[Rfam]
Nucleotides: 158
Base pairs, nucleotide, nucleotide: 001156002155003154004153005152006151007150008149009148010147011146014143016141017140019138021136022135023134024133025132026131027130028129029128030127031126032125033124034123036121040117041116042115043114044113045112049108050107051106054103055102056101057100058099071086072085073084074083
Number, partner (000 for none) and nucleotide at each position: 001156u002155c003154g004153u005152u006151a007150a008149g009148u010147g011146a012000c013000a014143a015000c016141g017140u018000a019138a020000c021136a022135g023134a024133c025132a026131a027130a028129g029128u030127g031126u032125c033124a034123u035000u036121u037000c038000a039000c040117c041116a042115u043114g044113c045112c046000c047000a048000a049108u050107c051106a052000c053000u054103g055102a056101c057100a058099c059000a060000u061000c062000a063000g064000u065000g066000c067000c068000a069000c070000u071086u072085c073084a074083u075000u076000g077000a078000a079000g080000g081000u082000g083074a084073u085072g086071a087000c088000a089000u090000g091000u092000c093000a094000a095000u096000g097000a098000g099058g100057u101056g102055u103054c104000u105000a106051u107050g108049a109000c110000a111000a112045g113044g114043c115042a116041u117040g118000a119000a120000a121036a122000c123034a124033u125032g126031a127030c128029a129028c130027u131026u132025u133024g134023u135022u136021u137000a138019u139000c140017a141016c142000a143014u144000c145000a146011u147010c148009a149008c150007u151006u152005a153004a154003c155002g156001a157000a158000a

Annotation:
Rfam assigns this 158-nucleotide sequence from Glycine soja to the family "MIR4371 microRNA precursor family". Taxonomically the source falls in Glycine subgen. Soja (Eukaryota, Euphyllophyta, fabids, Glycine). Clan: MIR4387 microRNA precursor clan. The family's consensus secondary structure was predicted with RNAalifold.